[Rfam]
RNA sequence: UUAUAAGCAAAAAUCCACUUUUUAGGUUCAUCGAAAAAAUGAUGUAUCUGGACUAUAUUACAAGUCAGAUACAUCAGUUUUCCAAUGAAUCUAAAAAGUGGUUUUUUGCUUAUAA
Numbered sequence: 001u002u003a004u005a006a007g008c009a010a011a012a013a014u015c016c017a018c019u020u021u022u023u024a025g026g027u028u029c030a031u032c033g034a035a036a037a038a039a040u041g042a043u044g045u046a047u048c049u050g051g052a053c054u055a056u057a058u059u060a061c062a063a064g065u066c067a068g069a070u071a072c073a074u075c076a077g078u079u080u081u082c083c084a085a086u087g088a089a090u091c092u093a094a095a096a097a098g099u100g101g102u103u104u105u106u107u108g109c110u111u112a113u114a115a
Stems, first nucleotide, its partner, number of pairs: 002114006009107005015101011027089005033083001035081004040076005049067003
MIR2593 microRNA precursor family: a 115-nucleotide sequence from Trifolium medium.
Lineage of the source: Eukaryota > Streptophytina > Spermatophyta > eudicotyledons > Trifolium.
Its family is annotated with miRNA-mediated post-transcriptional gene silencing and RISC complex in the Gene Ontology.
The family's consensus secondary structure was predicted with RNAalifold.